[Rfam]
RNA sequence: CGAUUUUUGUACUACAAUUAGGUACUGGACACCAGCAGCGAGUGUAUCCAGAAUCUAUACUAGUACAAAAAUAGC
Dot-bracket structure: ..((((((((((....(.(((((.(((.((.............))...))).))))))....))))))))))...
Shown here is a 75-nucleotide sequence from Caenorhabditis briggsae, a member of the family "mir-239 microRNA precursor family".
The literature on the family includes a 2006 paper in Cell by Ruby et al., "Large-scale sequencing reveals 21U-RNAs and additional microRNAs and endogenous siRNAs in C. elegans".
The sequence is in the family's curated seed alignment.